Notes
The record is a 181-nucleotide sequence from Mangrovimicrobium sediminis, which matches "6S / SsrS RNA" in Rfam. The match comes from Rfam's covariance-model search (103 bits). A reference for the family is Wassarman and Storz (2000), "6S RNA regulates E. coli RNA polymerase activity", Cell. From the family's description: E. coli 6S RNA was the first non coding RNA to be sequenced, but its function was unknown until recently. It consists of 184 nucleotides that fold into an extended hairpin structure with a large single-stranded internal bulge. The 6S RNA specifically associates with RNA polymerase holoenzyme containing the sigma70 specificity factor. This interaction represses expression from a sigma70-dependent promoter during stationary phase. 6S RNA homologs have recently been identified in most bacterial genomes.
RNA sequence: GGAUCCCUGGCGUAUGCGCCAGGCAGACAGUCCUCGAGCCGAUAAAUGUAAAACCGGGGGCGCCUCGCCGCUGUUGGUGUGCAGGUCCGGACAUUGACCGGAAAGCCUGAAACAGUGCAGGAGCCCCCCCUUGAACCGUCGGGUUCAAGGGCAGCGCUGUCAGCGGUACGCCGGGAAUCUU
Numbered sequence: 001g002g003a004u005c006c007c008u009g010g011c012g013u014a015u016g017c018g019c020c021a022g023g024c025a026g027a028c029a030g031u032c033c034u035c036g037a038g039c040c041g042a043u044a045a046a047u048g049u050a051a052a053a054c055c056g057g058g059g060g061c062g063c064c065u066c067g068c069c070g071c072u073g074u075u076g077g078u079g080u081g082c083a084g085g086u087c088c089g090g091a092c093a094u095u096g097a098c099c100g101g102a103a104a105g106c107c108u109g110a111a112a113c114a115g116u117g118c119a120g121g122a123g124c125c126c127c128c129c130c131u132u133g134a135a136c137c138g139u140c141g142g143g144u145u146c147a148a149g150g151g152c153a154g155c156g157c158u159g160u161c162a163g164c165g166g167u168a169c170g171c172c173g174g175g176a177a178u179c180u181u
Stems, first nucleotide, its partner, number of pairs: 002179003006175010017165003030152004036146005056128003060124002063121003067118001069117007081106002086102005